Shown here is a 106-nucleotide RNA sequence from Levilactobacillus brevis, a member of the family "TPP riboswitch aptamer (THI element)".
Lineage of the source: Bacteria > Bacillota > Lactobacillales > Levilactobacillus > Levilactobacillus brevis.
RNA sequence: CCAAAACACUAGGGGUGUCCACAAAUGGGCUGAGAUAUGGCAACGCCAUGAUCCCUUAGAACCUGUCAAGUUCAGACUUGCGGAGGGAACGUGUCGUGGCACCCAA
Number, nucleotide and partner (000 for none) at each position: 001c000002c000003a000004a000005a000006a094007c093008a092009c091010u000011a056012g055013g054014g053015g000016u050017g030018u029019c028020c027021a026022c000023a000024a000025a000026u021027g020028g019029g018030c017031u000032g000033a000034g000035a000036u000037a049038u048039g047040g046041c045042a000043a000044c000045g041046c040047c039048a038049u037050g016051a000052u000053c014054c013055c012056u011057u000058a000059g000060a000061a000062c086063c085064u084065g000066u000067c080068a079069a078070g077071u000072u000073c000074a000075g000076a000077c070078u069079u068080g067081c000082g000083g000084a064085g063086g062087g000088a000089a000090c000091g009092u008093g007094u006095c000096g000097u000098g000099g000100c000101a000102c000103c000104c000105a000106a000